tRNA: a 74-nucleotide sequence from Synechococcus sp. PCC 6312. The source organism's lineage runs through Bacteria, Cyanobacteriota, Synechococcales, Synechococcaceae and Synechococcus. The literature on the family includes a 1993 paper in Trends Biochem Sci by Hou, "The tertiary structure of tRNA and the development of the genetic code".
RNA sequence: GGCUCUGUAGCUCAGUUGGUUAGAGCAGGGGACUCAUAAGCCCAAGGUCAUGUGUUCAAGUCACAUCAGAGCCA
Numbered sequence: 001g002g003c004u005c006u007g008u009a010g011c012u013c014a015g016u017u018g019g020u021u022a023g024a025g026c027a028g029g030g031g032a033c034u035c036a037u038a039a040g041c042c043c044a045a046g047g048u049c050a051u052g053u054g055u056u057c058a059a060g061u062c063a064c065a066u067c068a069g070a071g072c073c074a
Stems, first nucleotide, its partner, number of pairs: 001073007010026004029043003050066005
Source information: A search with the family's covariance model found it, with a score of 64 bits.